Shown here is a 79-nucleotide sequence from Geotrypetes seraphini, a member of the family "Mammalian CPEB3 ribozyme". Its family is annotated with RNA nuclease activity in the Gene Ontology. The base pairs follow the family's consensus structure, which is taken from published work. From the family's description: The mammalian CPEB3 ribozyme is a self cleaving RNA located in the second intron of the CPEB3 gene which belongs to a family of genes regulating messenger RNA polyadenylation. This ribozyme is highly conserved and found only in mammals. The CPEB3 ribozyme is structurally and biochemically related to the human hepatitis delta virus (HDV) ribozyme and the HDV ribozyme is proposed to have arisen from the human transcriptome. There is currently only one other known self cleaving ribozyme in mammals, the CoTC motif.
RNA sequence: UGAGCCAGUUCCCAGGGCUUUAGCAGAAAUAUUUACAUCAUGUCUCUUGUCAGAUUCCUUCAAAUCUAUGAAUUCUGCU
Numbered sequence: 001u002g003a004g005c006c007a008g009u010u011c012c013c014a015g016g017g018c019u020u021u022a023g024c025a026g027a028a029a030u031a032u033u034u035a036c037a038u039c040a041u042g043u044c045u046c047u048u049g050u051c052a053g054a055u056u057c058c059u060u061c062a063a064a065u066c067u068a069u070g071a072a073u074u075c076u077g078c079u
Stems, first nucleotide, its partner, number of pairs: 014047004019042001022079007029041002052067005